[Rfam]
RNA sequence: AUACUUACCUGGCAGAGAUGGCACAGUGAUCACUAAAAACGGGCUGUCCGUCAUGAGCGAGGCCUGACCAUUGCACUCCGGUCGGGCUGACCCCAUCGAUUACCCCAAAUGCGGGUAACUCGGCUGCGUAAUUUAUGAUAGUGGGGGUCUGCGUUCGCGCUAACCCCCG
Numbered sequence: 001a002u003a004c005u006u007a008c009c010u011g012g013c014a015g016a017g018a019u020g021g022c023a024c025a026g027u028g029a030u031c032a033c034u035a036a037a038a039a040c041g042g043g044c045u046g047u048c049c050g051u052c053a054u055g056a057g058c059g060a061g062g063c064c065u066g067a068c069c070a071u072u073g074c075a076c077u078c079c080g081g082u083c084g085g086g087c088u089g090a091c092c093c094c095a096u097c098g099a100u101u102a103c104c105c106c107a108a109a110u111g112c113g114g115g116u117a118a119c120u121c122g123g124c125u126g127c128g129u130a131a132u133u134u135a136u137g138a139u140a141g142u143g144g145g146g147g148u149c150u151g152c153g154u155u156c157g158c159g160c161u162a163a164c165c166c167c168c169g
Base pairs, nucleotide, nucleotide: 012127013126014125015124017052018051019050020049021048023047024046025045026044027043054095055094057092059091061088062087063086065084066083067082068081069080097122098121099120100118101117102116104114105113143168144167145166146165147164148163151160152159153158
Shown here is a 169-nucleotide RNA from Branchiostoma belcheri, a member of the family "U1 spliceosomal RNA". On this family, see Charenton et al., Science 2019: "Mechanism of 5' splice site transfer for human spliceosome activation". Rfam classes the family as a spliceosomal small nuclear RNA. U1 is a small nuclear RNA (snRNA) component of the spliceosome (involved in pre-mRNA splicing). Its 5' end forms complementary base pairs with the 5' splice junction, thus defining the 5' donor site of an intron. There are significant differences in sequence and secondary structure between metazoan and yeast U1 snRNAs, the latter being much longer (568 nucleotides as compared to 164 nucleotides in human). Nevertheless, secondary structure predictions suggest that all U1 snRNAs share a 'common core' consisting of helices I, II, the proximal region of III, and IV. This family does not contain the larger yeast sequences.